The family of this 104-nucleotide RNA sequence from Paenibacillus sp. FSL R5-0912 is "Purine riboswitch aptamer". Lineage of the source: Bacteria > Bacillati > Bacillota > Paenibacillaceae > Paenibacillus.
[Rfam]
Nucleotides: 104
Stems, first nucleotide, its partner, number of pairs: 018090008029049006058080001060076005
Number, partner (000 for none) and nucleotide at each position: 001000a002000a003000u004000c005000a006000a007000a008000u009000a010000a011000g012000c013000u014000c015000u016000u017000g018090c019089u020088c021087u022086u023085g024084u025083a026000u027000a028000a029049g030048c031047u032046c033045a034044a035000u036000a037000a038000u039000u040000u041000g042000g043000u044034u045033u046032g047031a048030g049029c050000g051000u052000u053000u054000c055000g056000a057000c058080c059000a060076g061075g062074c063073g064072a065000c066000c067000g068000u069000a070000a071000a072064u073063u074062g075061c076060c077000c078000c079000a080058g081000g082000c083025u084024a085023c086022a087021g088020g089019a090018g091000g092000u093000a094000c095000g096000u097000g098000a099000u100000a101000g102000g103000a104000a